[Rfam]
RNA sequence: CAGGCCAGAAGAGGCGCGUUACCCAGGUAAAGUAUCAGAGGAGCCAGUCCAGUGACGAUACGUGAGAGGGGGAGUAACGCCGAGGUGAUGUCGCGUAUGGUAACGCCCAUCAUCGACCACAGGGGCUGAAUCCUCUGGGUUGUCACCCUAAGUAUUCGGUAACGAAUAUUUUAAUACCGACUUGCCCGGCAAAUUAAUGCCAUCACCAAGUCGGUCAACAAGGUGGAGCACUUCUGGGUGA
Numbered sequence: 001c002a003g004g005c006c007a008g009a010a011g012a013g014g015c016g017c018g019u020u021a022c023c024c025a026g027g028u029a030a031a032g033u034a035u036c037a038g039a040g041g042a043g044c045c046a047g048u049c050c051a052g053u054g055a056c057g058a059u060a061c062g063u064g065a066g067a068g069g070g071g072g073a074g075u076a077a078c079g080c081c082g083a084g085g086u087g088a089u090g091u092c093g094c095g096u097a098u099g100g101u102a103a104c105g106c107c108c109a110u111c112a113u114c115g116a117c118c119a120c121a122g123g124g125g126c127u128g129a130a131u132c133c134u135c136u137g138g139g140u141u142g143u144c145a146c147c148c149u150a151a152g153u154a155u156u157c158g159g160u161a162a163c164g165a166a167u168a169u170u171u172u173a174a175u176a177c178c179g180a181c182u183u184g185c186c187c188g189g190c191a192a193a194u195u196a197a198u199g200c201c202a203u204c205a206c207c208a209a210g211u212c213g214g215u216c217a218a219c220a221a222g223g224u225g226g227a228g229c230a231c232u233u234c235u236g237g238g239u240g241a
Stems, first nucleotide, its partner, number of pairs: 006236006016080006022072003030063001032061005084114007093106004115141004120137006143226005149220001
RNA: Lysine riboswitch aptamer
Organism: Citrobacter sp. JGM124